[Rfam]
RNA sequence: CCGCGAAAAAGGCAAGGUGUCUGAAAAGAUGCUCACGCAAAACUACCGGCCUAAAGGGAAACCUAUGGCGGCGGAGCUACCACG
Dot-bracket structure: ...........((...((((((....))))))....))..(.((.((((((....((....))...)))..))))).)......

Overview: Rfam assigns this 84-nucleotide RNA sequence from Thalassomonas actiniarum to the family "c-di-GMP-I riboswitch aptamer". The match comes from Rfam's covariance-model search (57 bits). From the family's description: GEMM was predicted in a large-scale screen for bacterial structured RNA regulatory elements. NCBI's taxonomy places the organism under Bacteria, Pseudomonadota, Gammaproteobacteria, Colwelliaceae, Thalassomonas.